Overview
Shown here is a 179-nucleotide RNA sequence from Anoxybacillus sp. B7M1, a member of the family "Lysine riboswitch aptamer". For this family Rfam cites "Riboswitches Control Fundamental Biochemical Pathways in Bacillus subtilis and Other Bacteria" (Mandal et al., Cell, 2003). The base pairs follow the family's consensus structure, which is taken from published work. Taxonomically the source falls in Anoxybacillus (Bacteria, Bacilli, Caryophanales, Anoxybacillaceae). It scores 134 bits against the family's covariance model.

[Rfam]
RNA sequence: AGUGAAGAUAGAGGCGCGAACUUCAAGAGUAGGCAUUUGGAGGAAAAUGGGUUCCAAAGAAAAAUGCCGAAAGGGGAGGCUCGCCGAAGUGGGGGAAGUCUCAUUGCUUUUCCUGCUGGUCCUGCGUUUAAGAAAUGUAGGACUGUCAAGAUGACCCAUCUUGGAGAGCUAUCUCACUG
Dot-bracket structure: .....((((((....((((.((((.......(((((((.......................)))))))......))).).))))...((((((((((((......))))))))))))(((((((((((.....))))))))))).(((((((.....)))))))....)))))).....